[Rfam]
RNA sequence: CCUAUGGAGAGUACAAGAACUUGUGAGUAGCAUAGUGCAAAAGCAUACUCGAUGAAGUAGGAA
Numbered sequence: 001c002c003u004a005u006g007g008a009g010a011g012u013a014c015a016a017g018a019a020c021u022u023g024u025g026a027g028u029a030g031c032a033u034a035g036u037g038c039a040a041a042a043g044c045a046u047a048c049u050c051g052a053u054g055a056a057g058u059a060g061g062a063a
Stems, first nucleotide, its partner, number of pairs: 001061005009050005022045003030038003

The family of this 63-nucleotide RNA sequence is "RAGATH-18 RNA". From the family's description: Actinobacteria, Firmicutes, Fusobacteria, Thermotogae (1 example).